Shown here is a 95-nucleotide sequence from Clostridium fungisolvens, a member of the family "Guanidine-I riboswitch aptamer". Pairs were carried over by alignment from the consensus structure. From the family's description: This family represents a conserved RNA structure found upstream of the ykkC and yxkD genes in Bacillus subtilis and related genes in other bacteria. The function of this family is unclear although it has been suggested that it may function to switch on efflux pumps and detoxification systems in response to harmful environmental molecules. A search with the family's covariance model found it, with a score of 85 bits.
RNA sequence: AUUUUAGUUUUCUAGGGUUCCGCAGUUAUAGCUGGCUGGUCCGAGAGAAAACGCACAGUUAAAUGUGUACACGGAAGGACAAAAGCCUGGGAGAU
Numbered sequence: 001a002u003u004u005u006a007g008u009u010u011u012c013u014a015g016g017g018u019u020c021c022g023c024a025g026u027u028a029u030a031g032c033u034g035g036c037u038g039g040u041c042c043g044a045g046a047g048a049a050a051a052c053g054c055a056c057a058g059u060u061a062a063a064u065g066u067g068u069a070c071a072c073g074g075a076a077g078g079a080c081a082a083a084a085g086c087c088u089g090g091g092a093g094a095u
Stems, first nucleotide, its partner, number of pairs: 007052006015042002020039002022036001023034004053068005070090001072093001076088003